[Rfam]
RNA: Small nucleolar RNA SNORD72
Organism: Anabas testudineus
RNA sequence: GUCUUGUCAGUGAUGUUUCUAAACACAAAUGUCUGAACAAAUGACUUUCUGUGAUUCCUCCUUCUAUACUGAGACAAGAC
Number, nucleotide and partner (000 for none) at each position: 001g000002u079003c078004u077005u076006g075007u074008c073009a000010g000011u000012g000013a000014u000015g000016u000017u000018u000019c000020u000021a000022a000023a000024c000025a000026c000027a000028a000029a000030u000031g000032u000033c000034u000035g000036a000037a000038c000039a000040a000041a000042u000043g000044a000045c000046u000047u000048u000049c000050u000051g000052u000053g000054a000055u000056u000057c000058c000059u000060c000061c000062u000063u000064c000065u000066a000067u000068a000069c000070u000071g000072a000073g008074a007075c006076a005077a004078g003079a002080c000